RNA: Fluoride riboswitch aptamer (crcB RNA motif)
Organism: Terrilactibacillus tamarindi
RNA sequence: AUCAAAAUAGGCGAUGGAGUUCGCCAUUAAAAUGCACCUGUGCUGAUGACUCCUACUAGUUA
Numbered sequence: 001a002u003c004a005a006a007a008u009a010g011g012c013g014a015u016g017g018a019g020u021u022c023g024c025c026a027u028u029a030a031a032a033u034g035c036a037c038c039u040g041u042g043c044u045g046a047u048g049a050c051u052c053c054u055a056c057u058a059g060u061u062a
Stems, first nucleotide, its partner, number of pairs: 010025004016053006034043003